[Rfam]
RNA sequence: AAAGAACGUCGCCGGAUUAACACGAGGGUGUUUCACCAGCAUGCUUGUCAUGUGGUAGUCGUGCCGGGGGUUCUUUCUUUU
Dot-bracket structure: (((((((..(.((((.....(((((.((((...))))..((((.....))))......)))))))))).))))))).....
Numbered sequence: 001a002a003a004g005a006a007c008g009u010c011g012c013c014g015g016a017u018u019a020a021c022a023c024g025a026g027g028g029u030g031u032u033u034c035a036c037c038a039g040c041a042u043g044c045u046u047g048u049c050a051u052g053u054g055g056u057a058g059u060c061g062u063g064c065c066g067g068g069g070g071u072u073c074u075u076u077c078u079u080u081u
Stems, first nucleotide, its partner, number of pairs: 001076007010068001012067004021063005027037004040052004